A member of the RNA family "Acido-Lenti-1 RNA" from Granulicella tundricola, 45 nucleotides long.
The family has 87 seed sequences and 2,607 matches in Rfam 15.1.
Lineage of the source: Bacteria > Terriglobia > Terriglobales > Granulicella > Granulicella tundricola.
It scores 45 bits against the family's covariance model.
RNA sequence: CCUAGGCCUUCGGCCUAGGCUGUUAUGUGCCGGGCCUUUGGCCCU
Numbered sequence: 001c002c003u004a005g006g007c008c009u010u011c012g013g014c015c016u017a018g019g020c021u022g023u024u025a026u027g028u029g030c031c032g033g034g035c036c037u038u039u040g041g042c043c044c045u
Base pairs, nucleotide, nucleotide: 001019002018003017004016005015006014007013008012032044033043034042035041036040